Shown here is a 92-nucleotide RNA from Micromonospora sp. HM5-17, a member of the family "Selenocysteine transfer RNA". The base pairs follow the family's consensus structure, which is taken from published work. The literature on the family includes a 2000 paper in FEBS Lett by Mizutani and Goto, "Eukaryotic selenocysteine tRNA has the 9/4 secondary structure". Lineage of the source: Bacteria > Actinomycetota > Actinomycetes > Micromonosporales > Micromonospora.

Nucleotides: 092
Stems, first nucleotide, its partner, number of pairs: 001092007009084001012027002015024003030044004048066005069083004
Number, partner (000 for none) and nucleotide at each position: 001092g002091g003090a004089g005088g006087c007086g008000g009084g010000c011000a012027g013026g014000u015024a016023c017022c018000u019000g020000g021000u022017g023016g024015u025000c026013c027012u028000c029000a030044c031043g032042g033041u034000c035000u036000u037000c038000a039000a040000a041033a042032c043031c044030g045000a046000u047000g048066c049065g050064g051063c052062c053000g054000a055000g056000g057000a058000g059000c060000u061000c062052g063051g064050u065049c066048g067000g068000g069083c070082g071081g072080g073000u074000u075000c076000g077000a078000u079000c080072c081071c082070c083069g084009u085000a086007c087006g088005c089004c090003u091002c092001c